[Rfam]
RNA sequence: UGUUAAAUUUUCAUUAAUUUUUACUGUUAAAAAUUGGCGUGAUUGACAAAAUAACUAGAUAGUUACAUAUGACAUUCCACUUGUACCUUAUGCUGAAAUACAAAGACCAAUUUUUAACAGUAAAAAUGGAUGGAAUUGUUAACU
Numbered sequence: 001u002g003u004u005a006a007a008u009u010u011u012c013a014u015u016a017a018u019u020u021u022u023a024c025u026g027u028u029a030a031a032a033a034u035u036g037g038c039g040u041g042a043u044u045g046a047c048a049a050a051a052u053a054a055c056u057a058g059a060u061a062g063u064u065a066c067a068u069a070u071g072a073c074a075u076u077c078c079a080c081u082u083g084u085a086c087c088u089u090a091u092g093c094u095g096a097a098a099u100a101c102a103a104a105g106a107c108c109a110a111u112u113u114u115u116a117a118c119a120g121u122a123a124a125a126a127u128g129g130a131u132g133g134a135a136u137u138g139u140u141a142a143c144u
Stems, first nucleotide, its partner, number of pairs: 002143005007137001009135007017127009027117006